[Rfam]
RNA: Lysine riboswitch aptamer
Organism: [Clostridium] polysaccharolyticum
RNA sequence: AAGCAAGGUAGAGGCGCAUUUUUUAUGAGUAAGCUGCUGGACAUAGAUAGGAGUGGCAGAAGGCAGCCAAAAGGAAACGAUGCCGAAGGUUUUGCUAACCUACAAAGCAGGAUCUGGGCACAUAAUGAAUAAUUAUGUGACUGUCAUCUUUUAAGAUGGAGUGCUACCUAAAGG
Number, nucleotide and partner (000 for none) at each position: 001a000002a000003g000004c000005a000006a169007g168008g167009u166010a165011g164012a000013g000014g000015c000016g083017c082018a081019u080020u079021u000022u077023u076024u075025a000026u000027g000028a000029g000030u000031a000032a000033g067034c066035u065036g064037c063038u062039g000040g000041a000042c000043a000044u000045a000046g000047a000048u000049a000050g000051g000052a000053g000054u000055g000056g000057c000058a000059g000060a000061a000062g038063g037064c036065a035066g034067c033068c000069a000070a000071a000072a000073g000074g000075a024076a023077a022078c000079g020080a019081u018082g017083c016084c000085g000086a000087a115088g114089g113090u112091u111092u110093u109094g108095c107096u106097a000098a000099c000100c000101u000102a000103c000104a000105a000106a096107g095108c094109a093110g092111g091112a090113u089114c088115u087116g142117g141118g000119c139120a138121c137122a136123u135124a134125a133126u132127g000128a000129a000130u000131a000132a126133u125134u124135a123136u122137g121138u120139g119140a000141c117142u116143g000144u159145c158146a157147u156148c155149u154150u000151u000152u000153a000154a149155g148156a147157u146158g145159g144160a000161g000162u000163g000164c011165u010166a009167c008168c007169u006170a000171a000172a000173g000174g000